[Rfam]
RNA sequence: GGGGAAGUAUAUUCGCAAGAAUGAAACUUAAAGGAAUUGACGGAAAUUCACCACCAGGAGUGGAGUUUGCGGCUUAAUUCGACUCAACGCGUGAAAACUUACCAAAUCCAAAUUAUGUAAAGAUUGACAGGUUAAUGACUUUUCUUGAUUCAUAAAAGAGUGGUGCAUGGUCGUUCUCAGUUCGUGGAUUAAUCUGUCUACUUAAUUGUGUUAACGAGCGAGACCUUAAUUAACUAAUUAGUAUCAUGUAAUUUUAACUUGUUUGAAAUCAAAAUCGAAAAUAACCAUUAAUAAUGGUUUUUUCUUCUUAGUAAAACUUAGCUCGAUUUAACAACAGAGUCAGGAAGUAAGGCUAUAACAGAUCUGUUAUGCCCUCAGAUGUUUUGGGCAGCACGCGUACUACAUUGAUAGUUUCAGUAAGUUUAAGCGUUAAGAGUCAUUUUAACACUCCGGGUUUUAAAUAAUGAGGUAAACUACAAUCACUUAACAAAUCAGGAAUUAAGGAUUGUAAAUUCCUUAUGAACAAGGAAUUCCUAGUAAUAGUAAAUCAUCAUUUUCCAAUGAUUACGUCCCUGAAUUUUGUACACA
Numbered sequence: 001g002g003g004g005a006a007g008u009a010u011a012u013u014c015g016c017a018a019g020a021a022u023g024a025a026a027c028u029u030a031a032a033g034g035a036a037u038u039g040a041c042g043g044a045a046a047u048u049c050a051c052c053a054c055c056a057g058g059a060g061u062g063g064a065g066u067u068u069g070c071g072g073c074u075u076a077a078u079u080c081g082a083c084u085c086a087a088c089g090c091g092u093g094a095a096a097a098c099u100u101a102c103c104a105a106a107u108c109c110a111a112a113u114u115a116u117g118u119a120a121a122g123a124u125u126g127a128c129a130g131g132u133u134a135a136u137g138a139c140u141u142u143u144c145u146u147g148a149u150u151c152a153u154a155a156a157a158g159a160g161u162g163g164u165g166c167a168u169g170g171u172c173g174u175u176c177u178c179a180g181u182u183c184g185u186g187g188a189u190u191a192a193u194c195u196g197u198c199u200a201c202u203u204a205a206u207u208g209u210g211u212u213a214a215c216g217a218g219c220g221a222g223a224c225c226u227u228a229a230u231u232a233a234c235u236a237a238u239u240a241g242u243a244u245c246a247u248g249u250a251a252u253u254u255u256a257a258c259u260u261g262u263u264u265g266a267a268a269u270c271a272a273a274a275u276c277g278a279a280a281a282u283a284a285c286c287a288u289u290a291a292u293a294a295u296g297g298u299u300u301u302u303u304c305u306u307c308u309u310a311g312u313a314a315a316a317c318u319u320a321g322c323u324c325g326a327u328u329u330a331a332c333a334a335c336a337g338a339g340u341c342a343g344g345a346a347g348u349a350a351g352g353c354u355a356u357a358a359c360a361g362a363u364c365u366g367u368u369a370u371g372c373c374c375u376c377a378g379a380u381g382u383u384u385u386g387g388g389c390a391g392c393a394c395g396c397g398u399a400c401u402a403c404a405u406u407g408a409u410a411g412u413u414u415c416a417g418u419a420a421g422u423u424u425a426a427g428c429g430u431u432a433a434g435a436g437u438c439a440u441u442u443u444a445a446c447a448c449u450c451c452g453g454g455u456u457u458u459a460a461a462u463a464a465u466g467a468g469g470u471a472a473a474c475u476a477c478a479a480u481c482a483c484u485u486a487a488c489a490a491a492u493c494a495g496g497a498a499u500u501a502a503g504g505a506u507u508g509u510a511a512a513u514u515c516c517u518u519a520u521g522a523a524c525a526a527g528g529a530a531u532u533c534c535u536a537g538u539a540a541u542a543g544u545a546a547a548u549c550a551u552c553a554u555u556u557u558c559c560a561a562u563g564a565u566u567a568c569g570u571c572c573c574u575g576a577a578u579u580u581u582g583u584a585c586a587c588a
Stems, first nucleotide, its partner, number of pairs: 002029003011022004038586002040583003044580007053570002057534005062403001064401003068397004072392002078093001080091002102387005108381001113155005126144002129141003159375002162373004168369001169367001170363003173359003180219006186195003199210003225351004230314003234311004240305002243302001317344003321340004407488001409486003413482001420475002450469002454465003495524001500519006540562002543559001545557003
RNA: Eukaryotic small subunit ribosomal RNA, nucleotides 1218 to 1805